[Rfam]
RNA sequence: AGAGGUUAAAUUGACUCUAGUAGGGAGUCCGUUUCCCACGCGACUCCCUAAUCGAGUCAGGUUGAUUUCUUU
Numbered sequence: 001a002g003a004g005g006u007u008a009a010a011u012u013g014a015c016u017c018u019a020g021u022a023g024g025g026a027g028u029c030c031g032u033u034u035c036c037c038a039c040g041c042g043a044c045u046c047c048c049u050a051a052u053c054g055a056g057u058c059a060g061g062u063u064g065a066u067u068u069c070u071u072u
Base pairs, nucleotide, nucleotide: 011060012059013058014057015056016055017054021050022049023048024047025046026045027044028043029042
RNA: mir-929 microRNA precursor family
Organism: Manduca sexta